Shown here is a 305-nucleotide sequence from Triticum urartu, a member of the family "Plant signal recognition particle RNA".
The organism belongs to Triticum, within Eukaryota.
The match comes from Rfam's covariance-model search (205 bits).
Clan: SRP clan.
RNA sequence: GCCGAGCUCAUUAGCGGGAGCUUGUAACCCGAGCUGGGGGCUUUAAGGUGGUGUGAACGUUGCCGUAGCGCUGUGGGCCUGGCCCGGUUGUGCUUCUGCUGGUCCGCCCGUUCCAAGUUGGUAGUGGACCCGCUUGGGGCCUGUGCGAAAGCUAGGCGCCACGGGCUAUAAUGCGGCAGGCAUUGCGUGAGGCUGGUUUAACAGAGCAGCGAAAACUGCCCGCCUCCAACGGUGGAAGGAUAACGGGCCGCUGCAUAACUGGGCCGCUUGGGUCUCCCAGCCUACUCCAACGAACCACUAUCUUU
Number, nucleotide and partner (000 for none) at each position: 001g041002c040003c039004g023005a022006g021007c020008u019009c018010a000011u016012u000013a000014g000015c000016g011017g000018g009019a008020g007021c006022u005023u004024g000025u000026a000027a000028c038029c037030c036031g035032a000033g000034c000035u031036g030037g029038g028039g003040g002041c001042u000043u000044u000045a304046a303047g302048g301049u300050g299051g298052u297053g296054u000055g295056a000057a000058c292059g291060u290061u289062g288063c000064c000065g285066u284067a283068g282069c000070g000071c280072u279073g278074u000075g276076g275077g274078c000079c272080u271081g265082g264083c263084c262085c261086g260087g259088u258089u000090g256091u255092g254093c000094u253095u000096c000097u000098g000099c000100u250101g249102g248103u247104c246105c245106g244107c000108c239109c238110g000111u237112u236113c235114c234115a233116a000117g230118u229119u228120g227121g226122u000123a000124g223125u222126g000127g167128a000129c165130c164131c163132g162133c000134u000135u161136g160137g159138g000139g157140c156141c155142u154143g153144u000145g152146c151147g000148a000149a000150a000151g146152c145153u143154a142155g141156g140157c139158g000159c137160c136161a135162c132163g131164g130165g129166c000167u127168a000169u000170a000171a000172u000173g000174c000175g220176g219177c218178a217179g216180g000181c000182a000183u000184u213185g000186c211187g210188u209189g000190a000191g000192g000193c204194u203195g202196g000197u000198u000199u000200a000201a000202c195203a194204g193205a000206g000207c000208a000209g188210c187211g186212a000213a184214a000215a000216c179217u178218g177219c176220c175221c000222g125223c124224c000225u000226c121227c120228a119229a118230c117231g000232g000233u115234g114235g113236a112237a111238g109239g108240a000241u000242a000243a000244c106245g105246g104247g103248c102249c101250g100251c000252u000253g094254c092255a091256u090257a000258a088259c087260u086261g085262g084263g083264c082265c081266g000267c000268u000269u000270g000271g080272g079273u000274c077275u076276c075277c000278c073279a072280g071281c000282c068283u067284a066285c065286u000287c000288c062289a061290a060291c059292g058293a000294a000295c055296c053297a052298c051299u050300a049301u048302c047303u046304u045305u000